[Rfam]
Nucleotides: 112
Base pairs, nucleotide, nucleotide: 001072002071003070004069009037010036011035012034013033014032015031020029021028038059039058040057043055044054045053075102076101077100078099079098080097081096082095083094084093085092086091
Number, partner (000 for none) and nucleotide at each position: 001072g002071g003070u004069c005000a006000a007000g008000a009037g010036g011035a012034u013033g014032g015031c016000g017000u018000c019000a020029a021028g022000a023000c024000c025000u026000g027000g028021c029020u030000c031015g032014u033013c034012g035011u036010c037009c038059g039058g040057c041000a042000a043055c044054c045053u046000u047000c048000g049000c050000g051000c052000a053045a054044g055043g056000u057040g058039c059038c060000c061000c062000a063000g064000g065000g066000a067000a068000c069004g070003a071002c072001c073000u074000g075102a076101u077100c078099g079098u080097c081096g082095u083094c084093g085092g086091c087000g088000a089000c090000g091086g092085c093084u094083g095082g096081c097080g098079g099078c100077g101076a102075u103000a104000a105000c106000g107000c108000g109000g110000a111000u112000c

This 112-nucleotide sequence from Pseudofrankia asymbiotica belongs to the Rfam family "SAM (S-adenosyl methionine) riboswitch aptamer". A search with the family's covariance model found it, with a score of 67 bits.